This 109-nucleotide RNA sequence from Sorghum bicolor belongs to the Rfam family "MIR5565 microRNA precursor family".
RNA sequence: CUUGUCAGAUUUACCUCAGUCCACUUGUGUUGGAGUGGAUUGGGGUGGAAUUUAGUUCAAGUUCCACUCCAACCCACCCCAGCACAUGUGGAUUGAUGCAAAUCCGACU
Numbered sequence: 001c002u003u004g005u006c007a008g009a010u011u012u013a014c015c016u017c018a019g020u021c022c023a024c025u026u027g028u029g030u031u032g033g034a035g036u037g038g039a040u041u042g043g044g045g046u047g048g049a050a051u052u053u054a055g056u057u058c059a060a061g062u063u064c065c066a067c068u069c070c071a072a073c074c075c076a077c078c079c080c081a082g083c084a085c086a087u088g089u090g091g092a093u094u095g096a097u098g099c100a101a102a103u104c105c106g107a108c109u
Base pairs, nucleotide, nucleotide: 004108005107006106008104009103010102011101012100014098016096017095018094019093020092021091022090023089024088026086027085028084029083030082031081032080035077036076037075038074040072041071042070043069045067046066047065